The record is a 135-nucleotide RNA sequence from Cellulomonas composti, which matches "ALIL pseudoknot" in Rfam. A search with the family's covariance model found it, with a score of 51 bits. A reference for the family is Mazauric et al. (2008), "Apical loop-internal loop RNA pseudoknots: a new type of stimulator of -1 translational frameshifting in bacteria", J Biol Chem. Rfam classes the family as a cis-regulatory element. Pairs were carried over by alignment from the consensus structure, which is taken from published work.
RNA sequence: GACGUCUUUCUUCGUGGGGGAGCUCGACCCCCGCAACCGAUGAUCAUGGGCUUCAUCGACACGAUGCGGUCCCAGGGCCACGCGGUCGAGUCGGUCUGUCAGGUCCUGCGUGAGCAGGGUCUGCAGGUCGCCGCG
Numbered sequence: 001g002a003c004g005u006c007u008u009u010c011u012u013c014g015u016g017g018g019g020g021a022g023c024u025c026g027a028c029c030c031c032c033g034c035a036a037c038c039g040a041u042g043a044u045c046a047u048g049g050g051c052u053u054c055a056u057c058g059a060c061a062c063g064a065u066g067c068g069g070u071c072c073c074a075g076g077g078c079c080a081c082g083c084g085g086u087c088g089a090g091u092c093g094g095u096c097u098g099u100c101a102g103g104u105c106c107u108g109c110g111u112g113a114g115c116a117g118g119g120u121c122u123g124c125a126g127g128u129c130g131c132c133g134c135g
Stems, first nucleotide, its partner, number of pairs: 016032005081135005092130002095127005